[Rfam]
This 350-nucleotide RNA from Beauveria bassiana belongs to the Rfam family "isrL Hfq binding RNA". Taxonomically the source falls in Beauveria bassiana (Eukaryota, leotiomyceta, Hypocreomycetidae, Beauveria).
RNA sequence: UUUGGCGACGUUAAUCUGUUCAGACUGGCUGGACAGUUUGCCGAUAGCUUCACGAAUGCUGGGGUGCCAGGUCACAGAGCGGUUGACCGCGUCGUUCAGCGUUAAGAUUCCGGGGGCAGGAGAAUUCAGCGGGAGGGCGGUUGAGCCAUCGAGCGAGGGGAGCUCUUGUUGUUGAGCCAGACCCUGAGUCGUAAUAGAAACCGGUGUAUCGUCGGCCGAGGCCUGGAGUGAAAACAGACCGCAAGCCAGCCAUAACGCAACAGGCUGUAAUUUUCCCAUAUUUUUUCCCUAAUAAAUGGCACUGCGUUUUUGUCUUAUUCCCCGGGCGUCUGCGCGCCCGGGGAUUUUUC
Numbered sequence: 001u002u003u004g005g006c007g008a009c010g011u012u013a014a015u016c017u018g019u020u021c022a023g024a025c026u027g028g029c030u031g032g033a034c035a036g037u038u039u040g041c042c043g044a045u046a047g048c049u050u051c052a053c054g055a056a057u058g059c060u061g062g063g064g065u066g067c068c069a070g071g072u073c074a075c076a077g078a079g080c081g082g083u084u085g086a087c088c089g090c091g092u093c094g095u096u097c098a099g100c101g102u103u104a105a106g107a108u109u110c111c112g113g114g115g116g117c118a119g120g121a122g123a124a125u126u127c128a129g130c131g132g133g134a135g136g137g138c139g140g141u142u143g144a145g146c147c148a149u150c151g152a153g154c155g156a157g158g159g160g161a162g163c164u165c166u167u168g169u170u171g172u173u174g175a176g177c178c179a180g181a182c183c184c185u186g187a188g189u190c191g192u193a194a195u196a197g198a199a200a201c202c203g204g205u206g207u208a209u210c211g212u213c214g215g216c217c218g219a220g221g222c223c224u225g226g227a228g229u230g231a232a233a234a235c236a237g238a239c240c241g242c243a244a245g246c247c248a249g250c251c252a253u254a255a256c257g258c259a260a261c262a263g264g265c266u267g268u269a270a271u272u273u274u275c276c277c278a279u280a281u282u283u284u285u286u287c288c289c290u291a292a293u294a295a296a297u298g299g300c301a302c303u304g305c306g307u308u309u310u311u312g313u314c315u316u317a318u319u320c321c322c323c324g325g326g327c328g329u330c331u332g333c334g335c336g337c338c339c340g341g342g343g344a345u346u347u348u349u350c
Stems, first nucleotide, its partner, number of pairs: 003269001008192002012188001017035005036057005043051002059186001061184003065180001067132002070100001072098001074096001077092001079090003102128001104126002108121003139178004144173003147168002149160002195232001198229001202225003240264001245258002319344011
On this family, see Padalon-Brauch et al., Nucleic Acids Res 2008: "Small RNAs encoded within genetic islands of Salmonella typhimurium show host-induced expression and role in virulence".